[Rfam]
RNA sequence: GUGCGGGCCCUGUGCAACAGGACUUCGUGAACCAUGUCAGGCGGGAAACCGAGCAGCAUUAAGCGAUAUGUCGUGUGUGCCGCAGCAAGCCUGCACAUC
Dot-bracket structure: ...(((((.((((((.(((.((..((((.....((((....(((....)))....))))...))))....)).))))...)))))...)))))......
RNA: Bacterial small signal recognition particle RNA